[Rfam]
RNA sequence: UUAAAUCCUGAGAUAAGAAAUAGUAAAUAAAUAUAUUUUUGCACAGAGAAUUAAGGAUGCUGAGAACUUAAUAAAAAGUAUUUAUUGAAUGGGUCUUUGAGGAGUAAAAUGAAAUGUAAUUUAAGAUUACAGAGUAUUUGAUAUCGUGUAUGCACGUUAUAGCAUAUAUUAAGAUAUAUAUAUUCAAUUUUGAGUGUAUAUAAAUUUAGGUGGUACCACGGAAAAUAUAUCCGUCCUAUUG
Numbered sequence: 001u002u003a004a005a006u007c008c009u010g011a012g013a014u015a016a017g018a019a020a021u022a023g024u025a026a027a028u029a030a031a032u033a034u035a036u037u038u039u040u041g042c043a044c045a046g047a048g049a050a051u052u053a054a055g056g057a058u059g060c061u062g063a064g065a066a067c068u069u070a071a072u073a074a075a076a077a078g079u080a081u082u083u084a085u086u087g088a089a090u091g092g093g094u095c096u097u098u099g100a101g102g103a104g105u106a107a108a109a110u111g112a113a114a115u116g117u118a119a120u121u122u123a124a125g126a127u128u129a130c131a132g133a134g135u136a137u138u139u140g141a142u143a144u145c146g147u148g149u150a151u152g153c154a155c156g157u158u159a160u161a162g163c164a165u166a167u168a169u170u171a172a173g174a175u176a177u178a179u180a181u182a183u184u185c186a187a188u189u190u191u192g193a194g195u196g197u198a199u200a201u202a203a204a205u206u207u208a209g210g211u212g213g214u215a216c217c218a219c220g221g222a223a224a225a226u227a228u229a230u231c232c233g234u235c236c237u238a239u240u241g
Base pairs, nucleotide, nucleotide: 007102008101015097016096017095018094026086027085028084029083030082031081039075040074050072051071052070053069054068055067105143106142107139108138109137110136111135145156146155147154207238208237209236210235218234219233220232221231222230
The record is a 241-nucleotide sequence from Clostridioides difficile, which matches "T-box leader" in Rfam. The family's RNA type in Rfam is cis-regulatory leader. Pairs were carried over by alignment from the consensus structure, which is taken from published work. NCBI's taxonomy places the organism under Bacteria, Bacillota, Clostridia, Peptostreptococcaceae, Clostridioides.